[Rfam]
RNA sequence: CAAUCCUCGGCUACACUCUGAAAUUACCAACUGCACGAUGGUACAUUUCAAUUUUUGCCCGAGGUAGAUGAAACUUUUAGUUCCACUACUCACCGCGAUGUACCACGUAUAAAUUUGGUCAUAGCGGUCCAUUGAUCGGAUCUACAU
Numbered sequence: 001c002a003a004u005c006c007u008c009g010g011c012u013a014c015a016c017u018c019u020g021a022a023a024u025u026a027c028c029a030a031c032u033g034c035a036c037g038a039u040g041g042u043a044c045a046u047u048u049c050a051a052u053u054u055u056u057g058c059c060c061g062a063g064g065u066a067g068a069u070g071a072a073a074c075u076u077u078u079a080g081u082u083c084c085a086c087u088a089c090u091c092a093c094c095g096c097g098a099u100g101u102a103c104c105a106c107g108u109a110u111a112a113a114u115u116u117g118g119u120c121a122u123a124g125c126g127g128u129c130c131a132u133u134g135a136u137c138g139g140a141u142c143u144a145c146a147u
Stems, first nucleotide, its partner, number of pairs: 007062003019050006025043004080142001082140002093127004098122003102119003
Small nucleolar RNA snR80: a 147-nucleotide RNA sequence from Akanthomyces lecanii. A search with the family's covariance model found it, with a score of 53 bits. Taxonomically the source falls in Akanthomyces lecanii (Eukaryota, Dikarya, Pezizomycotina, Hypocreomycetidae). Rfam 15.1 lists 447 matches to the family in 358 species.